This 85-nucleotide RNA from Caenorhabditis remanei belongs to the Rfam family "mir-238 microRNA precursor family".
The family's consensus secondary structure was predicted with RNAalifold.
The family has 3 seed sequences and 5 matches in Rfam 15.1.
It is one of the family's seed sequences.
RNA sequence: AUACCAUUUGGGUGGACACGGACGUAAAAAGCUAUGCCCGUGGUUAGGUAUUUAGCUUUGUACUCCGAUGCCAUUCAAAUGGUUG
Numbered sequence: 001a002u003a004c005c006a007u008u009u010g011g012g013u014g015g016a017c018a019c020g021g022a023c024g025u026a027a028a029a030a031g032c033u034a035u036g037c038c039c040g041u042g043g044u045u046a047g048g049u050a051u052u053u054a055g056c057u058u059u060g061u062a063c064u065c066c067g068a069u070g071c072c073a074u075u076c077a078a079a080u081g082g083u084u085g
Stems, first nucleotide, its partner, number of pairs: 003083012019067004024063003028059007